[Rfam]
RNA sequence: CACCUUGCUCUUCGCCCCUCGGCGUCGGGCAUCUUCCCUCUCCGCUACCAGAAAUGGCCUGCAGGAGAGAUGAUAGCGCAGUUUUUGAGGAUGUAUUUUGUCUGCGCGCGACUUGCCCUCCUUCGCUGCUCUUUGUAGCUCGGUGGAGAGGAUUCAAAAACUAGUCCUUGUU
Numbered sequence: 001c002a003c004c005u006u007g008c009u010c011u012u013c014g015c016c017c018c019u020c021g022g023c024g025u026c027g028g029g030c031a032u033c034u035u036c037c038c039u040c041u042c043c044g045c046u047a048c049c050a051g052a053a054a055u056g057g058c059c060u061g062c063a064g065g066a067g068a069g070a071u072g073a074u075a076g077c078g079c080a081g082u083u084u085u086u087g088a089g090g091a092u093g094u095a096u097u098u099u100g101u102c103u104g105c106g107c108g109c110g111a112c113u114u115g116c117c118c119u120c121c122u123u124c125g126c127u128g129c130u131c132u133u134u135g136u137a138g139c140u141c142g143g144u145g146g147a148g149a150g151g152a153u154u155c156a157a158a159a160a161c162u163a164g165u166c167c168u169u170g171u172u
Stems, first nucleotide, its partner, number of pairs: 008029003014023003037072001038069005044062002048057003090166003093161002096159005116151002118148004125144004
The family of this 172-nucleotide part of an RNA from Cytospora schulzeri is "Ascomycota telomerase RNA". Rfam links the family to the GO terms telomerase activity, telomerase catalytic core complex and telomere maintenance via telomerase. The base pairs follow the family's consensus structure. It is annotated as a non-coding RNA gene. A reference for the family is Qi et al. (2013), "The common ancestral core of vertebrate and fungal telomerase RNAs", Nucleic Acids Res. Lineage of the source: Eukaryota > Dikarya > Sordariomycetidae > Diaporthales > Cytospora.